[Rfam]
RNA sequence: CGAGCCGGCUCCUCGUACGGGGUCCGUCCACGACGUCAGACGACGGCUGGAUGCAAGGACCCGCGAUGCCCCGGUGGGGUGGAGGUGCGCACAUG
Numbered sequence: 001c002g003a004g005c006c007g008g009c010u011c012c013u014c015g016u017a018c019g020g021g022g023u024c025c026g027u028c029c030a031c032g033a034c035g036u037c038a039g040a041c042g043a044c045g046g047c048u049g050g051a052u053g054c055a056a057g058g059a060c061c062c063g064c065g066a067u068g069c070c071c072c073g074g075u076g077g078g079g080u081g082g083a084g085g086u087g088c089g090c091a092c093a094u095g
Base pairs, nucleotide, nucleotide: 014065015064016063020062021061022060023059024058025057026052027051028050034045035044036043
The record is a 95-nucleotide RNA sequence, which matches "malK-III RNA" in Rfam. The family's RNA type in Rfam is cis-regulatory element. The sequence is in the family's curated seed alignment.